[Rfam]
RNA: Xanthomonadaceae sRNA sX13
Organism: Cognatilysobacter bugurensis
RNA sequence: AACGUCUGUCGCUGAUCUUCUCCCCUCCCCUGGAGCAGAUCCGGAGCGAAGGCCCCUCCCCAGGCCCAGCUCCCGAGCCCCGCCGGCCCCCCCUGCCUGCGGGGCUUUUUA
Dot-bracket structure: ...(.(....)).(((((.((((........)))).))))).(((((...((((........))))..)))))..((((((((.(((.......))).)))))))).....